[Rfam]
Nucleotides: 274
Base pairs, nucleotide, nucleotide: 004263006261007260008259009258016177017176018175020173045134046133048132049131050130074122077119079117080116081115082114181193182192183191185189
Number, partner (000 for none) and nucleotide at each position: 001000a002000g003000c004263u005000u006261g007260c008259c009258g010000a011000g012000a013000c014000a015000u016177c017176a018175c019000a020173g021000a022000c023000a024000c025000u026000g027000a028000c029000u030000u031000g032000g033000g034000a035000a036000u037000u038000u039000u040000g041000u042000g043000a044000g045134u046133g047000u048132g049131g050130g051000a052000a053000u054000u055000u056000u057000g058000u059000g060000a061000g062000u063000g064000u065000g066000a067000g068000a069000g070000g071000u072000a073000a074122g075000c076000u077119c078000c079117g080116u081115g082114g083000c084000c085000u086000g087000c088000c089000u090000u091000c092000c093000c094000g095000g096000a097000u098000c099000u100000g101000c102000c103000c104000u105000c106000c107000g108000u109000c110000u111000a112000g113000u114082c115081c116080a117079c118000u119077g120000u121000u122074c123000c124000u125000c126000c127000u128000g129000a130050c131049c132048c133046c134045g135000g136000g137000c138000u139000u140000u141000g142000u143000c144000a145000c146000c147000c148000u149000c150000a151000g152000c153000u154000u155000g156000g157000u158000a159000a160000u161000c162000u163000c164000u165000g166000c167000g168000c169000g170000u171000u172000c173020c174000c175018g176017u177016g178000c179000u180000u181193c182192g183191g184000c185189c186000u187000g188000a189185g190000u191183c192182u193181g194000g195000a196000u197000u198000g199000c200000u201000u202000g203000c204000c205000a206000c207000g208000a209000c210000u211000u212000g213000c214000g215000u216000g217000c218000u219000g220000a221000c222000u223000g224000g225000c226000u227000g228000a229000c230000g231000g232000c233000g234000c235000c236000g237000g238000c239000a240000a241000g242000a243000u244000g245000a246000a247000g248000c249000u250000c251000u252000c253000c254000c255000u256000g257000g258009u259008g260007g261006c262000u263004g264000c265000g266000g267000u268000g269000c270000u271000g272000c273000u274000g
This 274-nucleotide RNA sequence from Hipposideros armiger belongs to the Rfam family "bip internal ribosome entry site (IRES)". On this family, see Kim and Jang, Biochem Biophys Res Commun 2002: "Continuous heat shock enhances translational initiation directed by internal ribosomal entry site". Rfam 15.1 lists 234 matches to the family in 131 species.